The family of this 277-nucleotide sequence is "FuFi-1 RNA".

RNA sequence: CGCUGAUGCGAGGGCUGACCCAAAAAGCAGAACUAAAACUGCUAAAGUGAUGCGAUGCGCCAUAGAAGCAUGGGGUUCCGUCUCGUGUGGAGUAAACGAAAAUGUGCACACCGCGCGGAGUAGACCGUGUUUAAAAAUCUAGUGUGUAGCUGUAAAUCGCGUGCUCGCUGCCACGUUAAAUCAGCGCAAAGAGUUUACAGCGUCCAAUCCUGCAACGCAUUUCGGGUAAACAAAUUUGGGAGAAUACCACCUGUGACGGAACCGCAGGUGGUAUUCU
Numbered sequence: 001c002g003c004u005g006a007u008g009c010g011a012g013g014g015c016u017g018a019c020c021c022a023a024a025a026a027g028c029a030g031a032a033c034u035a036a037a038a039c040u041g042c043u044a045a046a047g048u049g050a051u052g053c054g055a056u057g058c059g060c061c062a063u064a065g066a067a068g069c070a071u072g073g074g075g076u077u078c079c080g081u082c083u084c085g086u087g088u089g090g091a092g093u094a095a096a097c098g099a100a101a102a103u104g105u106g107c108a109c110a111c112c113g114c115g116c117g118g119a120g121u122a123g124a125c126c127g128u129g130u131u132u133a134a135a136a137a138u139c140u141a142g143u144g145u146g147u148a149g150c151u152g153u154a155a156a157u158c159g160c161g162u163g164c165u166c167g168c169u170g171c172c173a174c175g176u177u178a179a180a181u182c183a184g185c186g187c188a189a190a191g192a193g194u195u196u197a198c199a200g201c202g203u204c205c206a207a208u209c210c211u212g213c214a215a216c217g218c219a220u221u222u223c224g225g226g227u228a229a230a231c232a233a234a235u236u237u238g239g240g241a242g243a244a245u246a247c248c249a250c251c252u253g254u255g256a257c258g259g260a261a262c263c264g265c266a267g268g269u270g271g272u273a274u275u276c277u
Stems, first nucleotide, its partner, number of pairs: 001054003026043005033239005055220005068088007075262007089205003092198006243275013